L31-Firmicutes ribosomal protein leader: a 33-nucleotide RNA from Carnobacterium funditum. It is one of the family's seed sequences. NCBI's taxonomy places the organism under Bacteria, Bacillati, Bacillota, Bacilli, Carnobacterium funditum. Pairs were carried over by alignment from the consensus structure, which is taken from published work. Its Rfam clan is "Ribosomal Protein L31 Leader clan". For this family Rfam cites "Discovery of 20 novel ribosomal leader candidates in bacteria and archaea" (Eckert and Weinberg, BMC Microbiol, 2020).
RNA sequence: CUCUGGUUCAGCAAAUGUAUCAGGGCAAAGGAG
Numbered sequence: 001c002u003c004u005g006g007u008u009c010a011g012c013a014a015a016u017g018u019a020u021c022a023g024g025g026c027a028a029a030g031g032a033g
Base pairs, nucleotide, nucleotide: 001025002024003023004022005021006020007019